[Rfam]
RNA: Makes More Granules Regulator RNA (mmgR)
RNA sequence: CAAUCAGGCCUUACAGGCAUCCUCUCCCAAACUUCAAACGGGCCGGUCUUCGGAUCGGCCCUUUUUUUUGUCCGCG
Numbered sequence: 001c002a003a004u005c006a007g008g009c010c011u012u013a014c015a016g017g018c019a020u021c022c023u024c025u026c027c028c029a030a031a032c033u034u035c036a037a038a039c040g041g042g043c044c045g046g047u048c049u050u051c052g053g054a055u056c057g058g059c060c061c062u063u064u065u066u067u068u069u070g071u072c073c074g075c076g
Stems, first nucleotide, its partner, number of pairs: 008018004040061009